This 68-nucleotide sequence from Suricata suricatta belongs to the Rfam family "Small nucleolar RNA SNORD56". The family's RNA type in Rfam is C/D-box small nucleolar RNA.
RNA sequence: CUACAAUGAUGGCAGUGUUAUUCAAUAGCAGCUCACCUAGUGAGUGUUCAUACUUUGGGUCUGAGUGA
Dot-bracket structure: .(((...((............)).........................................))).

Source information: A search with the family's covariance model found it, with a score of 66 bits. For this family Rfam cites "Purified box C/D snoRNPs are able to reproduce site-specific 2'-O-methylation of target RNA in vitro" (Galardi et al., Mol Cell Biol, 2002). The base pairs follow the family's consensus structure, which was predicted with PFOLD.